[Rfam]
RNA: mir-4900 microRNA precursor family
Organism: Branchiostoma lanceolatum
RNA sequence: GCUAAGAGUUUUUCUUCGCCAGCGCGGCUUUGUGACGGUAUAACCAUAGCUGCGUGGCGAAGAAUUGCCCUUUCA
Numbered sequence: 001g002c003u004a005a006g007a008g009u010u011u012u013u014c015u016u017c018g019c020c021a022g023c024g025c026g027g028c029u030u031u032g033u034g035a036c037g038g039u040a041u042a043a044c045c046a047u048a049g050c051u052g053c054g055u056g057g058c059g060a061a062g063a064a065u066u067g068c069c070c071u072u073u074c075a
Stems, first nucleotide, its partner, number of pairs: 005071002008068002012064006019057003025052005031046001032044002